[Rfam]
RNA sequence: GAGAACUGAUAUUCCAAAGAGUGGAAUGAGGGGGUAACGCCCCAAAACGCUCUCCUUAAUACUCCUACAUGCUGUGCAACUGCUGAAAUGCACAGUAUGAAGCUAGGUGAAGUCGGCAGAGAGAUACCGUAAGGCAUGAAAAUGCCACGAAAGCUGUCCAGCGGUGGGCGGUGUAUCCUAUAUGCCGGAGGUCUAUAAA
Dot-bracket structure: .................((((((.......((((.....))))....))))))((((......((((((((((((((............))))))))))....))))......(((((....((((((((...((........)).)))...((((((((....))))))))))))).....)))))))))........